Shown here is an 82-nucleotide RNA from Zootermopsis nevadensis, a member of the family "mir-46/mir-47/mir-281 microRNA precursor family".
RNA sequence: CAGUCCGGACUAUCAAGAGAGCUAUCCGUCGACAGUAUUGUUUCUAAACUGUCAUGGAGUUGCUCUCUUUAUGGACGGACUG
Numbered sequence: 001c002a003g004u005c006c007g008g009a010c011u012a013u014c015a016a017g018a019g020a021g022c023u024a025u026c027c028g029u030c031g032a033c034a035g036u037a038u039u040g041u042u043u044c045u046a047a048a049c050u051g052u053c054a055u056g057g058a059g060u061u062g063c064u065c066u067c068u069u070u071a072u073g074g075a076c077g078g079a080c081u082g
Stems, first nucleotide, its partner, number of pairs: 015069004020064003025058004031053003035049002